[Rfam]
RNA sequence: CCUAUCCGCAAGAUGAAGCCAACACGGAUGUAAAUGAGCUCUGCUCGCUGUCCGAGAGCGCAAAACCUCGUGUGGAUUGUUCCGUUGCCUUCCUUCUGACCAUACGU
Numbered sequence: 001c002c003u004a005u006c007c008g009c010a011a012g013a014u015g016a017a018g019c020c021a022a023c024a025c026g027g028a029u030g031u032a033a034a035u036g037a038g039c040u041c042u043g044c045u046c047g048c049u050g051u052c053c054g055a056g057a058g059c060g061c062a063a064a065a066c067c068u069c070g071u072g073u074g075g076a077u078u079g080u081u082c083c084g085u086u087g088c089c090u091u092c093c094u095u096c097u098g099a100c101c102a103u104a105c106g107u
Stems, first nucleotide, its partner, number of pairs: 003106001005104001025084004
Overview
Small nucleolar RNA Z13/snr52: a 107-nucleotide RNA sequence from Phanerodontia chrysosporium. Rfam classes the family as a C/D-box small nucleolar RNA. The source organism's lineage runs through Eukaryota, Opisthokonta, Dikarya, Polyporales and Phanerodontia chrysosporium. Rfam 15.1 lists 1,203 matches to the family in 866 species.